[Rfam]
A member of the RNA family "Zeta-pan RNA" from zeta proteobacterium SCGC AB-133-C04, 49 nucleotides long. Taxonomically the source falls in Candidatius Mariprofundia (Bacteria, Pseudomonadati, Pseudomonadota). Pairs were carried over by alignment from the consensus structure, which is taken from published work.
RNA sequence: CAUCCUGAAAGACGGUACUGGAGACAGACCGAAGCAGAAAGGUAAUAUG
Numbered sequence: 001c002a003u004c005c006u007g008a009a010a011g012a013c014g015g016u017a018c019u020g021g022a023g024a025c026a027g028a029c030c031g032a033a034g035c036a037g038a039a040a041g042g043u044a045a046u047a048u049g
Base pairs, nucleotide, nucleotide: 013031014030015029016028018027019026020025